A member of the RNA family "Pistol ribozyme" from Jenstvirus jenst, 64 nucleotides long.
[Rfam]
RNA sequence: UAGUGUUGCGGCACUUACAAGCCCAUUAAGCCGCAAGCGUUAGCCCUUCCGGGGCUAGGUUGGG
Number, nucleotide and partner (000 for none) at each position: 001u000002a015003g014004u013005g000006u036007u035008g034009c033010g032011g031012c000013a004014c003015u002016u000017a000018c000019a000020a000021g000022c064023c063024c062025a061026u000027u000028a000029a000030g038031c011032c010033g009034c008035a007036a006037g000038c030039g000040u058041u057042a056043g055044c054045c053046c052047u000048u000049c000050c000051g000052g046053g045054g044055c043056u042057a041058g040059g000060u000061u025062g024063g023064g022
A search with the family's covariance model found it, with a score of 38 bits.